Overview:
The family of this 118-nucleotide RNA from Bacillus sp. SJS is "PyrR binding site". Lineage of the source: Bacteria > Bacillota > Bacilli > Caryophanales > Bacillus. The family's consensus secondary structure is taken from published work.
RNA sequence: AGUUCUUUUUAAUGCAGUCCCGUGAGACCGCAAAGAGAACCGGAAACAGAUGCUUCCUUUACAGGGAUGCCUGUCUUUCUGUGUACCUCUUUGCUCUCAGGCAAAGAGGUUUUUUAAU
Numbered sequence: 001a002g003u004u005c006u007u008u009u010u011a012a013u014g015c016a017g018u019c020c021c022g023u024g025a026g027a028c029c030g031c032a033a034a035g036a037g038a039a040c041c042g043g044a045a046a047c048a049g050a051u052g053c054u055u056c057c058u059u060u061a062c063a064g065g066g067a068u069g070c071c072u073g074u075c076u077u078u079c080u081g082u083g084u085a086c087c088u089c090u091u092u093g094c095u096c097u098c099a100g101g102c103a104a105a106g107a108g109g110u111u112u113u114u115u116a117a118u
Stems, first nucleotide, its partner, number of pairs: 003038002006035004014031002017028003044078003048074001050072001052070002055067003081114001083112001085110010